[Rfam]
RNA sequence: UGGGUGUGGAGAGAGCAGAGCCCCUGAAGAAUGGCUUUUCUGUGUACAACACAUCCAACAGCAACGGGGGAUGUCACAGGAAGGCCAUAGUAUUCUGCAUCCUCACGGUGGCAGAAUACUAUGGCCUUCCUGUGACAUUACGCCCUAUACAA
Numbered sequence: 001u002g003g004g005u006g007u008g009g010a011g012a013g014a015g016c017a018g019a020g021c022c023c024c025u026g027a028a029g030a031a032u033g034g035c036u037u038u039u040c041u042g043u044g045u046a047c048a049a050c051a052c053a054u055c056c057a058a059c060a061g062c063a064a065c066g067g068g069g070g071a072u073g074u075c076a077c078a079g080g081a082a083g084g085c086c087a088u089a090g091u092a093u094u095c096u097g098c099a100u101c102c103u104c105a106c107g108g109u110g111g112c113a114g115a116a117u118a119c120u121a122u123g124g125c126c127u128u129c130c131u132g133u134g135a136c137a138u139u140a141c142g143c144c145c146u147a148u149a150c151a152a
Base pairs, nucleotide, nucleotide: 002056003055004054005053006052007051008050013045015043016042017041018040019039020038023034024033069145070144072142076138080133082127083126084125086123087122088121089120090119091118092117093116094115095114096113097112098111
Small nucleolar RNA SNORA11: a 152-nucleotide RNA from Myotis davidii. Lineage of the source: Eukaryota > Eumetazoa > Gnathostomata > Theria > Myotis. By type it is an H/ACA-box small nucleolar RNA. The literature on the family includes a 2005 paper in Nucleic Acids Res by Gu et al., "A novel experimental approach for systematic identification of box H/ACA snoRNAs from eukaryotes". A search with the family's covariance model found it, with a score of 56 bits. Rfam describes the family as follows. U107 (SNORA11) is a member of the H/ACA class of snoRNAs that guide the sites of modification of uridines to pseudouridines. Its family is annotated with RNA processing and nucleolus in the Gene Ontology.